A member of the RNA family "c-di-AMP riboswitch aptamer (ydaO/yuaA leader)" from Koleobacter methoxysyntrophicus, 155 nucleotides long.
RNA sequence: CAAAAAUUAUCACCGAAUUCCCUGUAAGGGAUACGGGGGACCCAACUGUGGGGUGAAUCUCCCUUGAUUUUGCAAUAAGCAGAGAUUAAGGGAGUAGGGCUAUCCUUUCAGCCCGAAUCCGUCAGCUAACCCCGGAGGUGUAGAAAGGAGGGCUC
Numbered sequence: 001c002a003a004a005a006a007u008u009a010u011c012a013c014c015g016a017a018u019u020c021c022c023u024g025u026a027a028g029g030g031a032u033a034c035g036g037g038g039g040a041c042c043c044a045a046c047u048g049u050g051g052g053g054u055g056a057a058u059c060u061c062c063c064u065u066g067a068u069u070u071u072g073c074a075a076u077a078a079g080c081a082g083a084g085a086u087u088a089a090g091g092g093a094g095u096a097g098g099g100c101u102a103u104c105c106u107u108u109c110a111g112c113c114c115g116a117a118u119c120c121g122u123c124a125g126c127u128a129a130c131c132c133c134g135g136a137g138g139u140g141u142a143g144a145a146a147g148g149a150g151g152g153c154u155c
Base pairs, nucleotide, nucleotide: 011140012139013138014137019031020030021029022028034134035133036132037131038130043050044049051120052119053118059094060093061092062091063090064089065088066087067086068085069084070083071082097114098113099112100111
A search with the family's covariance model found it, with a score of 99 bits. The organism belongs to Koleobacter, within Bacteria.